[Rfam]
RNA sequence: GUGGGAGGAAGCUCAUUGUAGAGGUCACAUGCUGAGUGCUCGUCACUCGUCCAAUCACCUCGGGGAAGGUCUGAGACAAGAGCCAAUCGCUGCCCUUGCAGGGCAUCACCUGAUUCGGGUGAGCGAGUGAACAGAAAUCCUGGGCUAAUGCUUGCACUUCUCACAGGAGAAGCCAGAUGACGCGCCUUGAGCGGCUCUGGUGGAUGUGGUGCGAGCUGGUUUGGAAUCGCUCGCGGCUGGCGAAUGAGUCCGAUGUAUGAGGUGGGGCACUGCUCCAGAACCCAAUUCAGACUACUCUCCACCCAC
Dot-bracket structure: ((((..(((..(((((....((((.........(((((.....))))).........)))).........[[[[[.....((((......(((((.....)))))((((((.....))))))(((((((.............(............................................................................).......)))))))))))..................))))).((((((...))))))........]]]]].......)))..))))

Description:
Rfam assigns this 306-nucleotide sequence from Gouania willdenowi to the family "Nuclear RNase P". The match comes from Rfam's covariance-model search (220 bits). For this family Rfam cites "Eukaryotic Ribonuclease P: A Plurality of Ribonucleoprotein Enzymes" (Xiao et al., Annu Rev Biochem, 2002).